[Rfam]
RNA sequence: GUCGAGCUCGUUAGUGUGAGCUUGUAACCCAAGCGGGGACAUUAAGAUGGUCGGACAACCGGGUCCGAUUCACUCGGUAGGUUCUAGUGCGCAACGUAUCGACUCGCCCGUUCUUCUAGUGCGCAACGUAUGGACUCGCCCGUUCCAAGUGAGGAGUUGAUUUCACCAUAAGCCUGGGUUGUGCGGUCACUACAGCGGAGGGAACGCGAUUUUAAUCUCGUGCGAAAUGAAAAAUCCCGCGCGAAAUGAAAAAUCCCGCGCACAAUGAAAUUCCCGCACGGGAUGAAUCGAAGCAUCAUGGCCGUUGGAUUGGCCAUCCAACGGCCCGCACGCUGAGCAGUGCGAGAUCAAACUUUUUUCCCAGCGGAGGGCACCGCGUCAGGCUGGCUUCUGAGAGCAGCGAUCACCUCCCUCUCUUGACAGUGGAAGGAUAACGAUUUGAUAUGCACUGGUUCCAACUCAGCCUAGUGAGCUGACUCGGUUGGACAACCAUUUUU
Number, nucleotide and partner (000 for none) at each position: 001g040002u039003c038004g023005a022006g021007c020008u019009c018010g017011u016012u000013a000014g000015u000016g011017u010018g009019a008020g007021c006022u005023u004024g000025u000026a000027a000028c037029c036030c035031a000032a000033g000034c000035g030036g029037g028038g003039a002040c001041a000042u000043u000044a496045a495046g494047a493048u492049g491050g490051u489052c000053g487054g000055a000056c484057a483058a000059c481060c480061g479062g000063g477064u476065c475066c000067g473068a000069u000070u471071c470072a469073c468074u467075c000076g465077g464078u463079a000080g456081g455082u000083u000084c452085u451086a450087g449088u000089g447090c446091g445092c000093a000094a443095c000096g000097u000098a000099u442100c441101g440102a439103c000104u437105c436106g435107c000108c430109c429110g000111u428112u427113c426114u425115u000116c419117u000118a417119g416120u000121g414122c000123g000124c000125a356126a355127c000128g353129u352130a000131u350132g349133g348134a000135c346136u345137c344138g343139c342140c000141c340142g000143u000144u000145c000146c000147a000148a000149g000150u000151g000152a000153g000154g000155a000156g000157u000158u000159g000160a000161u000162u000163u000164c000165a000166c000167c000168a000169u000170a000171a000172g000173c000174c000175u000176g000177g000178g000179u000180u000181g000182u000183g000184c000185g000186g000187u000188c000189a000190c000191u000192a000193c000194a000195g000196c000197g000198g000199a000200g000201g000202g000203a000204a000205c000206g000207c000208g000209a000210u000211u000212u000213u000214a000215a000216u000217c000218u000219c000220g000221u000222g000223c000224g000225a000226a000227a000228u000229g000230a000231a000232a000233a000234a000235u000236c000237c000238c000239g000240c000241g000242c000243g000244a000245a000246a000247u000248g000249a000250a000251a000252a000253a000254u000255c000256c000257c000258g000259c000260g000261c000262a000263c000264a000265a000266u000267g000268a000269a000270a000271u000272u000273c000274c000275c000276g000277c000278a000279c000280g000281g000282g000283a000284u000285g000286a000287a000288u000289c000290g000291a000292a000293g000294c000295a000296u000297c000298a000299u000300g000301g000302c000303c000304g000305u000306u000307g000308g000309a000310u000311u000312g000313g000314c000315c000316a000317u000318c000319c000320a000321a000322c000323g000324g000325c000326c000327c000328g000329c000330a000331c000332g000333c000334u000335g000336a000337g000338c000339a000340g141341u000342g139343c138344g137345a136346g135347a000348u133349c132350a131351a000352a129353c128354u000355u126356u125357u000358u364359u363360c000361c000362c000363a359364g358365c000366g411367g410368a409369g408370g407371g000372c000373a000374c000375c000376g000377c402378g401379u400380c000381a000382g000383g000384c395385u394386g000387g000388c000389u000390u000391c000392u000393g000394a385395g384396a000397g000398c000399a000400g379401c378402g377403a000404u000405c000406a000407c370408c369409u368410c367411c366412c000413u000414c121415u000416c119417u118418u000419g116420a000421c000422a000423g000424u000425g114426g113427a112428a111429g109430g108431a000432u000433a000434a000435c106436g105437a104438u000439u102440u101441g100442a099443u094444a000445u091446g090447c089448a000449c087450u086451g085452g084453u000454u000455c081456c080457a000458a000459c000460u000461c000462a000463g078464c077465c076466u000467a074468g073469u072470g071471a070472g000473c067474u000475g065476a064477c063478u000479c061480g060481g059482u000483u057484g056485g000486a000487c053488a000489a051490c050491c049492a048493u047494u046495u045496u044497u000
Rfam assigns this 497-nucleotide sequence from Papaver nudicaule to the family "Plant signal recognition particle RNA". It is annotated as a non-coding RNA gene. NCBI's taxonomy places the organism under Eukaryota, Embryophyta, Spermatophyta, Magnoliopsida, Papaver. The base pairs follow the family's consensus structure, which is taken from published work.